[Rfam]
RNA sequence: AAAAGAUAAAGGCAAACUUAUCGAAAGGUAAGGACGCAAAGCAAGAGUCUAAAGUCUAUAUAAUUGCUGUUAAAAGUAAUUGUAUUUACAAUGAUAGUCAAGCCACCAGA
Numbered sequence: 001a002a003a004a005g006a007u008a009a010a011g012g013c014a015a016a017c018u019u020a021u022c023g024a025a026a027g028g029u030a031a032g033g034a035c036g037c038a039a040a041g042c043a044a045g046a047g048u049c050u051a052a053a054g055u056c057u058a059u060a061u062a063a064u065u066g067c068u069g070u071u072a073a074a075a076g077u078a079a080u081u082g083u084a085u086u087u088a089c090a091a092u093g094a095u096a097g098u099c100a101a102g103c104c105a106c107c108a109g110a
Stems, first nucleotide, its partner, number of pairs: 012037002017032006041103002045099002047095003054089002
Dot-bracket structure: ...........((...((((((....))))))...))...((..(((((....((................................))...)))..))..)).......
This 110-nucleotide RNA sequence from Alkalibaculum sporogenes belongs to the Rfam family "c-di-GMP-I riboswitch aptamer". Pairs were carried over by alignment from the consensus structure, which is taken from published work. A search with the family's covariance model found it, with a score of 58 bits.